A member of the RNA family "STnc490 Hfq binding RNA" from Oxobacter pfennigii, 113 nucleotides long.
It is annotated as a small RNA.
The family has 76 seed sequences and 285 matches in Rfam 15.1.

RNA sequence: AACCCCACGUUAGACGUGGGGUUCAGGAGAGCUUACAGCGAUGAGGAAGACAUAAAAACUCCUUUUGAUAUAAUAAAGUUGCGGUCUGCCAACUGCAACAAGUAUAUCAAAAG
Numbered sequence: 001a002a003c004c005c006c007a008c009g010u011u012a013g014a015c016g017u018g019g020g021g022u023u024c025a026g027g028a029g030a031g032c033u034u035a036c037a038g039c040g041a042u043g044a045g046g047a048a049g050a051c052a053u054a055a056a057a058a059c060u061c062c063u064u065u066u067g068a069u070a071u072a073a074u075a076a077a078g079u080u081g082c083g084g085u086c087u088g089c090c091a092a093c094u095g096c097a098a099c100a101a102g103u104a105u106a107u108c109a110a111a112a113g
Stems, first nucleotide, its partner, number of pairs: 001023010028042001031039003062113011074101001078099008
Background: Pairs were carried over by alignment from the consensus structure, which was predicted with WAR.